[Rfam]
RNA sequence: CGACAAAAAAGGCAAACUAUUUGAAAAGAUAGGACGCAAAGUUUAGGGUCUAAAGUCCUAGAGACUAAGAUCGCCUGACUACCAAG
Numbered sequence: 001c002g003a004c005a006a007a008a009a010a011g012g013c014a015a016a017c018u019a020u021u022u023g024a025a026a027a028g029a030u031a032g033g034a035c036g037c038a039a040a041g042u043u044u045a046g047g048g049u050c051u052a053a054a055g056u057c058c059u060a061g062a063g064a065c066u067a068a069g070a071u072c073g074c075c076u077g078a079c080u081a082c083c084a085a086g
Base pairs, nucleotide, nucleotide: 012037013036017032018031019030020029021028022027040080041079042078043077045076046075047074048071049070050069055065056064057063